[Rfam]
RNA sequence: CAGGCAGGGUGUAUCGGUCGCUCUUCGCUUCGGCGGGGGGAGGAAAGUCCGGACUCCGCAGGGCAGGACGUUCCGUGGUUAACGCGGGAACCCGUGUGCGAUAUCGCACGGGAUGGAAAGUGCCGCAGAAAAUAUACCGCCAUGCCCGCUCUUUGAGCGGGAAUGGUAAGGGUGAAAAGGUGGGGUAAGAGCCCACCGCCCCGAGGGCAACCGAGGGGGCAGGGUAAACCCCGUCCGGAGCAAGAUCAAAUAGGCGACGAUGAUGCUGCCCGCAUCGCUAAUAGUCGCGGGUUGAACGCACUAGAUAAAUGACUGACUCCUUCGGGAGAACAGAAUCCGGCUUACCGCCCUGCCUGUCUU
Numbered sequence: 001c002a003g004g005c006a007g008g009g010u011g012u013a014u015c016g017g018u019c020g021c022u023c024u025u026c027g028c029u030u031c032g033g034c035g036g037g038g039g040g041a042g043g044a045a046a047g048u049c050c051g052g053a054c055u056c057c058g059c060a061g062g063g064c065a066g067g068a069c070g071u072u073c074c075g076u077g078g079u080u081a082a083c084g085c086g087g088g089a090a091c092c093c094g095u096g097u098g099c100g101a102u103a104u105c106g107c108a109c110g111g112g113a114u115g116g117a118a119a120g121u122g123c124c125g126c127a128g129a130a131a132a133u134a135u136a137c138c139g140c141c142a143u144g145c146c147c148g149c150u151c152u153u154u155g156a157g158c159g160g161g162a163a164u165g166g167u168a169a170g171g172g173u174g175a176a177a178a179g180g181u182g183g184g185g186u187a188a189g190a191g192c193c194c195a196c197c198g199c200c201c202c203g204a205g206g207g208c209a210a211c212c213g214a215g216g217g218g219g220c221a222g223g224g225u226a227a228a229c230c231c232c233g234u235c236c237g238g239a240g241c242a243a244g245a246u247c248a249a250a251u252a253g254g255c256g257a258c259g260a261u262g263a264u265g266c267u268g269c270c271c272g273c274a275u276c277g278c279u280a281a282u283a284g285u286c287g288c289g290g291g292u293u294g295a296a297c298g299c300a301c302u303a304g305a306u307a308a309a310u311g312a313c314u315g316a317c318u319c320c321u322u323c324g325g326g327a328g329a330a331c332a333g334a335a336u337c338c339g340g341c342u343u344a345c346c347g348c349c350c351u352g353c354c355u356g357u358c359u360u
Stems, first nucleotide, its partner, number of pairs: 001356010011345001014316006021040008045343003049340005054240004061271004066236005071089007090114001091112008115231002120229002122225003137171002139167005145161006179197006198220001199218004205212002244297001246295002254288005262276005
A member of the RNA family "Bacterial RNase P class A" from Pontiella sulfatireligans, 360 nucleotides long. It is annotated as a ribozyme. The match comes from Rfam's covariance-model search (245 bits).